[Rfam]
RNA sequence: AGAGCUUAGCUGAUUGGUGAACAGUGAUUGAUCUCCUUUGUUCACAGUGGCUAAGUUCUGC
Numbered sequence: 001a002g003a004g005c006u007u008a009g010c011u012g013a014u015u016g017g018u019g020a021a022c023a024g025u026g027a028u029u030g031a032u033c034u035c036c037u038u039u040g041u042u043c044a045c046a047g048u049g050g051c052u053a054a055g056u057u058c059u060g061c
Stems, first nucleotide, its partner, number of pairs: 002058010017045007
Dot-bracket structure: .((((((((((.....(((((((...............)))))))...))))))))))...
The record is a 61-nucleotide RNA from Salmo salar, which matches "mir-27 microRNA precursor family" in Rfam. On this family, see Chen et al., Genes Dev 2005: "The developmental miRNA profiles of zebrafish as determined by small RNA cloning".